[Rfam]
RNA sequence: GACAGGAUGAUGAGUCACUCGCUGAGUGACAAUAAGCCGAGUGUUAGCGGUUUUUCACAACCGUGAUGAUCAUUCCCUCAAAAGCGAUACAUGUGGUCUGACUGUC
Numbered sequence: 001g002a003c004a005g006g007a008u009g010a011u012g013a014g015u016c017a018c019u020c021g022c023u024g025a026g027u028g029a030c031a032a033u034a035a036g037c038c039g040a041g042u043g044u045u046a047g048c049g050g051u052u053u054u055u056c057a058c059a060a061c062c063g064u065g066a067u068g069a070u071c072a073u074u075c076c077c078u079c080a081a082a083a084g085c086g087a088u089a090c091a092u093g094u095g096g097u098c099u100g101a102c103u104g105u106c
Stems, first nucleotide, its partner, number of pairs: 001106005